[Rfam]
RNA sequence: UAACACGUCAAAGUGGUUGUGGAAUGUUUUGUUAUAGAUUCAUAUCACAGCUAUCUUUGACGCGUUAAA
Numbered sequence: 001u002a003a004c005a006c007g008u009c010a011a012a013g014u015g016g017u018u019g020u021g022g023a024a025u026g027u028u029u030u031g032u033u034a035u036a037g038a039u040u041c042a043u044a045u046c047a048c049a050g051c052u053a054u055c056u057u058u059g060a061c062g063c064g065u066u067a068a069a
Base pairs, nucleotide, nucleotide: 006062007061008060009059010058011057012056013055014053015052016051017050018049019048020047021046022045025044026043027042
Shown here is a 69-nucleotide RNA sequence from Araneus ventricosus, a member of the family "mir-2 microRNA precursor family".
The literature on the family includes a 2001 paper in Science by Lee and Ambros, "An extensive class of small RNAs in Caenorhabditis elegans".
A search with the family's covariance model found it, with a score of 63 bits.
The base pairs follow the family's consensus structure, which was predicted with PFOLD.